[Rfam]
Overview:
The record is an 84-nucleotide RNA sequence from Firmicutes bacterium CAG:308, which matches "ZMP/ZTP riboswitch aptamer (pfl RNA motif)" in Rfam.
RNA sequence: GGGUGCUUAUAUAACUGACGGAAAAAGUGGAACUGACCACAUGGAAGUAUAAGAGUAUAAAUGCCGUCCGUCUGGGCAGCCAUA
Numbered sequence: 001g002g003g004u005g006c007u008u009a010u011a012u013a014a015c016u017g018a019c020g021g022a023a024a025a026a027g028u029g030g031a032a033c034u035g036a037c038c039a040c041a042u043g044g045a046a047g048u049a050u051a052a053g054a055g056u057a058u059a060a061a062u063g064c065c066g067u068c069c070g071u072c073u074g075g076g077c078a079g080c081c082a083u084a
Stems, first nucleotide, its partner, number of pairs: 003056002006053007015044002017072005027040004062078004
The source organism's lineage runs through Bacteria, Bacillati and Bacillota.